This 87-nucleotide sequence from Myotis brandtii belongs to the Rfam family "mir-9195 microRNA precursor family". The source organism's lineage runs through Eukaryota, Eumetazoa, Bilateria, Vertebrata and Myotis. A search with the family's covariance model found it, with a score of 96 bits.
RNA sequence: AGAGGCUCUCCGCAGCUGGGGCGGGAUGCUUGCCUCAUUGCUGCGGCGAUGAAGCAAGCAUUUCGCCAGGCUGCUCACACUGCCCGC
Dot-bracket structure: ...(((.....((((((..((((((((((((((...(((((....)))))...)))))))))))))).)))))).......)))...